[Rfam]
RNA sequence: UCAAUAAGUAGAAAAACGAAAUGAAUUUAAUUCUUACAAAUACUUGGUGGUGGACUAAACUUACGUCGAAUGUCGUGAGCAGUCCUUGCUAUGUAUAUAUGAAUUAAGAGAAAUAAUAUAUAAUACCUAGAAGAGGCUUGUC
Numbered sequence: 001u002c003a004a005u006a007a008g009u010a011g012a013a014a015a016a017c018g019a020a021a022u023g024a025a026u027u028u029a030a031u032u033c034u035u036a037c038a039a040a041u042a043c044u045u046g047g048u049g050g051u052g053g054a055c056u057a058a059a060c061u062u063a064c065g066u067c068g069a070a071u072g073u074c075g076u077g078a079g080c081a082g083u084c085c086u087u088g089c090u091a092u093g094u095a096u097a098u099a100u101g102a103a104u105u106a107a108g109a110g111a112a113a114u115a116a117u118a119u120a121u122a123a124u125a126c127c128u129a130g131a132a133g134a135g136g137c138u139u140g141u142c
Stems, first nucleotide, its partner, number of pairs: 036100001038098001040096004045091003049086002052083001060079003063073003